The record is a 95-nucleotide RNA from Patellaria atrata, which matches "Small nucleolar RNA Z13/snr52" in Rfam. The family's consensus secondary structure was predicted with PFOLD. It scores 85 bits against the family's covariance model.

RNA sequence: AAUUCUUGUAUGAUGAAACAUAUUGGAUGUAAAAACAAUACCGAUGGCGCAAAAACUAUGUGGAAAUUUCCGUUGCCUUCCUUCUGAUUAAGUCU
Numbered sequence: 001a002a003u004u005c006u007u008g009u010a011u012g013a014u015g016a017a018a019c020a021u022a023u024u025g026g027a028u029g030u031a032a033a034a035a036c037a038a039u040a041c042c043g044a045u046g047g048c049g050c051a052a053a054a055a056c057u058a059u060g061u062g063g064a065a066a067u068u069u070c071c072g073u074u075g076c077c078u079u080c081c082u083u084c085u086g087a088u089u090a091a092g093u094c095u
Stems, first nucleotide, its partner, number of pairs: 005092001024072004